Background
This 86-nucleotide sequence from Clostridioides difficile belongs to the Rfam family "c-di-GMP-I riboswitch aptamer". Pairs were carried over by alignment from the consensus structure, which is taken from published work.
[Rfam]
RNA sequence: AAAAUUAAAUGGCAAAAUUAGGGAAAUCUAAUGACGCAAAACUAUAGGGAUUAAAGCUUUUAAAGCCAUAUCAGCCAGUUGCUAAA
Numbered sequence: 001a002a003a004a005u006u007a008a009a010u011g012g013c014a015a016a017a018u019u020a021g022g023g024a025a026a027u028c029u030a031a032u033g034a035c036g037c038a039a040a041a042c043u044a045u046a047g048g049g050a051u052u053a054a055a056g057c058u059u060u061u062a063a064a065g066c067c068a069u070a071u072c073a074g075c076c077a078g079u080u081g082c083u084a085a086a
Stems, first nucleotide, its partner, number of pairs: 012037002017032006040080004047076002049072003056066004
GEMM was predicted in a large-scale screen for bacterial structured RNA regulatory elements. It is one of the family's seed sequences.